[Rfam]
RNA sequence: CACCCCUGGCAAUGGGCAAAGAGACCCCUUGGUCUUGGUGUUGUCCUUAUAUCAGUCAGGAGCAGAGUAUACAGCAUCCUUUGUUCAUGCCAGCCUGGUGCCUGGCUUGGUGGCCAAAGAUGGUUUAUGCCUAGGACUCAGAA
Numbered sequence: 001c002a003c004c005c006c007u008g009g010c011a012a013u014g015g016g017c018a019a020a021g022a023g024a025c026c027c028c029u030u031g032g033u034c035u036u037g038g039u040g041u042u043g044u045c046c047u048u049a050u051a052u053c054a055g056u057c058a059g060g061a062g063c064a065g066a067g068u069a070u071a072c073a074g075c076a077u078c079c080u081u082u083g084u085u086c087a088u089g090c091c092a093g094c095c096u097g098g099u100g101c102c103u104g105g106c107u108u109g110g111u112g113g114c115c116a117a118a119g120a121u122g123g124u125u126u127a128u129g130c131c132u133a134g135g136a137c138u139c140a141g142a143a
Base pairs, nucleotide, nucleotide: 003062005060006059007058008057013054014053015052019048020047021046023042024041025040027038028037083137084136085135086134097131098130099129103127104126105125107123108122109121111119

Rfam assigns this 143-nucleotide RNA from Mus musculus to the family "Small nucleolar RNA SNORA48".
About the family: The snoRNA ACA 48 has been identified to guide pseudouridylation of the residue U3797 in the 28S rRNA subunit.
The family is grouped with related families in Rfam's "SNORA48 clan".
The family's consensus secondary structure was predicted with RNAalifold.
The source organism's lineage runs through Eukaryota, Opisthokonta, Chordata, Euarchontoglires and Mus.
A reference for the family is Ofengand and Bakin (1997), "Mapping to nucleotide resolution of pseudouridine residues in large subunit ribosomal RNAs from representative eukaryotes, prokaryotes, archaebacteria, mitochondria and chloroplasts", J Mol Biol.